A member of the RNA family "MIR2118 microRNA precursor family" from Triticum urartu, 171 nucleotides long. NCBI's taxonomy places the organism under Eukaryota, Euphyllophyta, Pooideae, Triticeae, Triticum. The literature on the family includes a 2009 paper in Nucleic Acids Res by Xue et al., "Characterization and expression profiles of miRNAs in rice seeds".
[Rfam]
RNA sequence: GCCUGGAAGAGGAAGAAUAGAUGGUCUUAGAGUAGUGGGAAGGGGAACAUGGAGGAAACCCUAACUUGCUCGGUUUUCAGCUCUAGUAUCAGAGGUUGGUAUUGAGUAUGGUGUUUUUCGAUGCCUCCCAUUCCUAUUACUCUAAAGCACUCGUUCAUUUUUCUUUUCUGG
Numbered sequence: 001g002c003c004u005g006g007a008a009g010a011g012g013a014a015g016a017a018u019a020g021a022u023g024g025u026c027u028u029a030g031a032g033u034a035g036u037g038g039g040a041a042g043g044g045g046a047a048c049a050u051g052g053a054g055g056a057a058a059c060c061c062u063a064a065c066u067u068g069c070u071c072g073g074u075u076u077u078c079a080g081c082u083c084u085a086g087u088a089u090c091a092g093a094g095g096u097u098g099g100u101a102u103u104g105a106g107u108a109u110g111g112u113g114u115u116u117u118u119c120g121a122u123g124c125c126u127c128c129c130a131u132u133c134c135u136a137u138u139a140c141u142c143u144a145a146a147g148c149a150c151u152c153g154u155u156c157a158u159u160u161u162u163c164u165u166u167u168c169u170g171g
Stems, first nucleotide, its partner, number of pairs: 009162005015156003020152002025147001027145008036136006043129004048123003052119001054118005060113001